[Rfam]
RNA sequence: CUGCUUCUUGCUUCAACAAUGUUUAGAUGGAACAG
Number, nucleotide and partner (000 for none) at each position: 001c035002u034003g033004c000005u032006u031007c030008u029009u000010g028011c000012u027013u026014c000015a024016a023017c021018a000019a000020u000021g017022u000023u016024u015025a000026g013027a012028u010029g008030g007031a006032a005033c003034a002035g001
RNA: Iron response element I
Organism: Camelus dromedarius